[Rfam]
RNA sequence: UUAUGAAUAUGAGGAAAGUUAAUGCACAGGUGAUGAUUGAUUUCAUUCGAUUCAUCUGAUCAAAAAUCUAUUCGCUACGUUCUUUCUGAUUCAUGU
Numbered sequence: 001u002u003a004u005g006a007a008u009a010u011g012a013g014g015a016a017a018g019u020u021a022a023u024g025c026a027c028a029g030g031u032g033a034u035g036a037u038u039g040a041u042u043u044c045a046u047u048c049g050a051u052u053c054a055u056c057u058g059a060u061c062a063a064a065a066a067u068c069u070a071u072u073c074g075c076u077a078c079g080u081u082c083u084u085u086c087u088g089a090u091u092c093a094u095g096u
Base pairs, nucleotide, nucleotide: 004093005092006091007090
RNA: Small nucleolar RNA R32/R81/Z41
Organism: Acer yangbiense